Source information:
Shown here is a 119-nucleotide RNA sequence from Caballeronia sp. SBC1, a member of the family "Betaproteobacteria-1 RNA". A search with the family's covariance model found it, with a score of 98 bits.

RNA sequence: CGCGUGGUUGGUCGGGCAAACAACGGCAGCGACCACGGGAUACCCCGGGACUGUGGGAUAGUCUUGAGACCCCGGGCGGAGUGGCGAAGUUAGCGCUCCGAGGCGAACGGCUGACGGGC
Numbered sequence: 001c002g003c004g005u006g007g008u009u010g011g012u013c014g015g016g017c018a019a020a021c022a023a024c025g026g027c028a029g030c031g032a033c034c035a036c037g038g039g040a041u042a043c044c045c046c047g048g049g050a051c052u053g054u055g056g057g058a059u060a061g062u063c064u065u066g067a068g069a070c071c072c073c074g075g076g077c078g079g080a081g082u083g084g085c086g087a088a089g090u091u092a093g094c095g096c097u098c099c100g101a102g103g104c105g106a107a108c109g110g111c112u113g114a115c116g117g118g119c
Stems, first nucleotide, its partner, number of pairs: 001039001003037008026054004045075005061104004077100006089115006
Dot-bracket structure: (.((((((((...............[[[[)))))))).).....(((((.]]]]......{{{{......))))).((((((......[[[[[[))))))}}}}.....]]]]]]....
Rfam classes the family as a small RNA.